The family of this 119-nucleotide RNA sequence from Alloscardovia theropitheci is "FMN riboswitch aptamer (RFN element)".
The RFN element is a highly conserved domain that is found frequently in the 5'-untranslated regions of prokaryotic mRNAs that encode for flavin mononucleotide (FMN) biosynthesis and transport proteins.
The match comes from Rfam's covariance-model search (87 bits).
The family's consensus secondary structure is taken from published work.
[Rfam]
RNA sequence: UGUAAGUUUCAGGGCGAGGCGUAACUCCUCGACUGGCGGUAUAGCCCGCGACCCGCAUAGCGGUUGAUUUGGUGUGAUUCCAAAGCCAACGGUAUAGUCCGGAUAAAAAGGAACGGAAG
Numbered sequence: 001u002g003u004a005a006g007u008u009u010c011a012g013g014g015c016g017a018g019g020c021g022u023a024a025c026u027c028c029u030c031g032a033c034u035g036g037c038g039g040u041a042u043a044g045c046c047c048g049c050g051a052c053c054c055g056c057a058u059a060g061c062g063g064u065u066g067a068u069u070u071g072g073u074g075u076g077a078u079u080c081c082a083a084a085g086c087c088a089a090c091g092g093u094a095u096a097g098u099c100c101g102g103a104u105a106a107a108a109a110g111g112a113a114c115g116g117a118a119g
Stems, first nucleotide, its partner, number of pairs: 003117001006114005017029003032098002034088002036049004044086002053063002068084005090101003